Nuclear RNase P: a 303-nucleotide sequence from Kryptolebias marmoratus.
The base pairs follow the family's consensus structure, which is taken from published work.
It is annotated as a ribozyme.
From the family's description: Ribonuclease P (RNase P) is a ubiquitous endoribonuclease, found in archaea, bacteria and eukarya as well as chloroplasts and mitochondria.
Its Rfam clan is "RNaseP clan".
[Rfam]
RNA sequence: GUGGGAGGAAGCUCAUUGAAGAGAUCACGUGCUGAGUGGUCAUCACUCCUCCAAUCAUCUCUGGGAAGGUCUGAGACAGGAGCCAUUCGCUGCUCCAGCAGAGCAUCACCUGAUACAGGUGAGCGGGUGAACAGAAACCACCAGUAAUGAGCUGUUCUGACAGGAGAAACAGUUGGUGCUCCGCGGCGCCUCCUGGUGGAUGUGACGCUCAGCUGCCUUGGAAGCGCCCGCGGCUGGCGGAUGAGUGCGAUGUGUGAGGGGGGGCACAGCCCCCCAACCCAACUCAGACCACUCUCCUCCCAC
Numbered sequence: 001g002u003g004g005g006a007g008g009a010a011g012c013u014c015a016u017u018g019a020a021g022a023g024a025u026c027a028c029g030u031g032c033u034g035a036g037u038g039g040u041c042a043u044c045a046c047u048c049c050u051c052c053a054a055u056c057a058u059c060u061c062u063g064g065g066a067a068g069g070u071c072u073g074a075g076a077c078a079g080g081a082g083c084c085a086u087u088c089g090c091u092g093c094u095c096c097a098g099c100a101g102a103g104c105a106u107c108a109c110c111u112g113a114u115a116c117a118g119g120u121g122a123g124c125g126g127g128u129g130a131a132c133a134g135a136a137a138c139c140a141c142c143a144g145u146a147a148u149g150a151g152c153u154g155u156u157c158u159g160a161c162a163g164g165a166g167a168a169a170c171a172g173u174u175g176g177u178g179c180u181c182c183g184c185g186g187c188g189c190c191u192c193c194u195g196g197u198g199g200a201u202g203u204g205a206c207g208c209u210c211a212g213c214u215g216c217c218u219u220g221g222a223a224g225c226g227c228c229c230g231c232g233g234c235u236g237g238c239g240g241a242u243g244a245g246u247g248c249g250a251u252g253u254g255u256g257a258g259g260g261g262g263g264g265c266a267c268a269g270c271c272c273c274c275c276a277a278c279c280c281a282a283c284u285c286a287g288a289c290c291a292c293u294c295u296c297c298u299c300c301c302a303c
Base pairs, nucleotide, nucleotide: 001303002302003301004300007297008296009295012258013257014256015255016254020062021061022060023059024058034048035047036046037045038044071287072286073285074284075283081235082234083233084232091105092104093103094102095101106122107121108120109119110118111117123231124230125229126228127227128226129225144216145215259275260274261273262272263271264270265269